[Rfam]
RNA sequence: CGCUUCUGCCCUUCCUGGGCGUUUCCUCCCUAAUGAACUGGCCCGGCGGUUUCGCCGGGCUUUUUUUUGGAUUCGG
Numbered sequence: 001c002g003c004u005u006c007u008g009c010c011c012u013u014c015c016u017g018g019g020c021g022u023u024u025c026c027u028c029c030c031u032a033a034u035g036a037a038c039u040g041g042c043c044c045g046g047c048g049g050u051u052u053c054g055c056c057g058g059g060c061u062u063u064u065u066u067u068u069g070g071a072u073u074c075g076g
Stems, first nucleotide, its partner, number of pairs: 008020004040061009
RNA: Makes More Granules Regulator RNA (mmgR)
Organism: Caulobacter vibrioides